[Rfam]
RNA sequence: AUUCUGCGAUGAUGCGGGAGAUUGCGGCUUUCGCCGGUAACUUCCGCGGAGUAUGUCCGAGCAAAUCGGGCGG
Numbered sequence: 001a002u003u004c005u006g007c008g009a010u011g012a013u014g015c016g017g018g019a020g021a022u023u024g025c026g027g028c029u030u031u032c033g034c035c036g037g038u039a040a041c042u043u044c045c046g047c048g049g050a051g052u053a054u055g056u057c058c059g060a061g062c063a064a065a066u067c068g069g070g071c072g073g
Stems, first nucleotide, its partner, number of pairs: 014047003018044003025036004054072007

The record is a 73-nucleotide RNA sequence from Flavonifractor sp. An135, which matches "S10-Clostridia ribosomal protein leader" in Rfam. For this family Rfam cites "Discovery of 20 novel ribosomal leader candidates in bacteria and archaea" (Eckert and Weinberg, BMC Microbiol, 2020). It scores 40 bits against the family's covariance model. By type it is a cis-regulatory leader.